[Rfam]
RNA sequence: UUAAAAAUAUAAGUAUAUCCCAUGGAAUGUUUGGGAUAUACUUAUACUAAAA
Number, nucleotide and partner (000 for none) at each position: 001u000002u000003a000004a000005a000006a048007a000008u046009a045010u044011a043012a042013g000014u040015a039016u038017a000018u036019c035020c034021c033022a031023u000024g000025g000026a000027a000028u000029g000030u000031u022032u000033g021034g020035g019036a018037u000038a016039u015040a014041c000042u012043u011044a010045u009046a008047c000048u006049a000050a000051a000052a000

The family of this 52-nucleotide sequence from Balaenoptera musculus is "mir-1302 microRNA precursor family". A reference for the family is Morin et al. (2008), "Application of massively parallel sequencing to microRNA profiling and discovery in human embryonic stem cells", Genome Res. The family's consensus secondary structure was predicted with WAR.